[Rfam]
RNA sequence: AGGGAUAAACGCGCGUAUAAUAAGCGGACUGGACCCGGGUGCGAUUCCCGGCGGCUCCACCAAUCUCAUCCUCCACGUUAUCGGUGGACGACCUUGGGGCCGAUCAGCAUCGACGGACGUCUAAAGGCGUUGCUUUCUCUCGGUAUGGGCCUCCGCGAUCGGCCUAUUUUGUAAAUGCGAACGAUAACUUCGCUGAAGAGUUCGCCAUCGCCGCGUAA
Numbered sequence: 001a002g003g004g005a006u007a008a009a010c011g012c013g014c015g016u017a018u019a020a021u022a023a024g025c026g027g028a029c030u031g032g033a034c035c036c037g038g039g040u041g042c043g044a045u046u047c048c049c050g051g052c053g054g055c056u057c058c059a060c061c062a063a064u065c066u067c068a069u070c071c072u073c074c075a076c077g078u079u080a081u082c083g084g085u086g087g088a089c090g091a092c093c094u095u096g097g098g099g100c101c102g103a104u105c106a107g108c109a110u111c112g113a114c115g116g117a118c119g120u121c122u123a124a125a126g127g128c129g130u131u132g133c134u135u136u137c138u139c140u141c142g143g144u145a146u147g148g149g150c151c152u153c154c155g156c157g158a159u160c161g162g163c164c165u166a167u168u169u170u171g172u173a174a175a176u177g178c179g180a181a182c183g184a185u186a187a188c189u190u191c192g193c194u195g196a197a198g199a200g201u202u203c204g205c206c207a208u209c210g211c212c213g214c215g216u217a218a
Stems, first nucleotide, its partner, number of pairs: 001140005013130004025119002029116003035051005052102007141155003

permuted transfer-messenger RNA: a 218-nucleotide sequence from Caulobacter sp. S45. The family's consensus secondary structure is taken from published work. The source organism's lineage runs through Bacteria, Pseudomonadati, Pseudomonadota, Caulobacterales and Caulobacter. Bacterial tmRNA, also known as 10Sa RNA or SsrA, is named for its dual tRNA and mRNA-like properties. A reference for the family is Williams and Bartel (1996), "Phylogenetic analysis of tmRNA secondary structure", RNA. Rfam's curators put it in the seed alignment.